Shown here is a 65-nucleotide RNA sequence from Megaselia scalaris, a member of the family "mir-14 microRNA precursor family".
A search with the family's covariance model found it, with a score of 64 bits.
Gene Ontology terms of the family: RISC complex and miRNA-mediated post-transcriptional gene silencing.
Pairs were carried over by alignment from the consensus structure, which was predicted with RNAalifold.
On this family, see Li et al., BMC Genomics 2009: "Direct sequencing and expression analysis of a large number of miRNAs in Aedes aegypti and a multi-species survey of novel mosquito miRNAs".
[Rfam]
RNA sequence: UGUAGGGGCGAGUAAUGGACUCACUGUGUCUUCAAAUCGUAGUCAGUCUUUUUCUCUCUCCUAUA
Numbered sequence: 001u002g003u004a005g006g007g008g009c010g011a012g013u014a015a016u017g018g019a020c021u022c023a024c025u026g027u028g029u030c031u032u033c034a035a036a037u038c039g040u041a042g043u044c045a046g047u048c049u050u051u052u053u054c055u056c057u058c059u060c061c062u063a064u065a
Stems, first nucleotide, its partner, number of pairs: 001065008010056003015051001017049005023043005

The source organism's lineage runs through Eukaryota, Opisthokonta, Hexapoda, Insecta and Megaselia.